[Rfam]
RNA sequence: GUGCUGUACAGACGUUUUGCUGUUGUGGUCUGGUAUUGCACCCCGAAGGAGAGCGACCGCAGGGGUGCGAGCAGCGC
Numbered sequence: 001g002u003g004c005u006g007u008a009c010a011g012a013c014g015u016u017u018u019g020c021u022g023u024u025g026u027g028g029u030c031u032g033g034u035a036u037u038g039c040a041c042c043c044c045g046a047a048g049g050a051g052a053g054c055g056a057c058c059g060c061a062g063g064g065g066u067g068c069g070a071g072c073a074g075c076g077c
Stems, first nucleotide, its partner, number of pairs: 001077006009032004037069008
Description: Shown here is a 77-nucleotide RNA sequence from Stenomitos frigidus, a member of the family "CyVA-1 RNA". The family's consensus secondary structure is taken from published work. The match comes from Rfam's covariance-model search (71 bits). From the family's description: Cyanobacteria, Acidobacteria (1 example), Verrucomicrobia (1 example). The family's RNA type in Rfam is small RNA. Taxonomically the source falls in Stenomitos frigidus (Bacteria, Cyanobacteriota, Leptolyngbyales, Leptolyngbyaceae).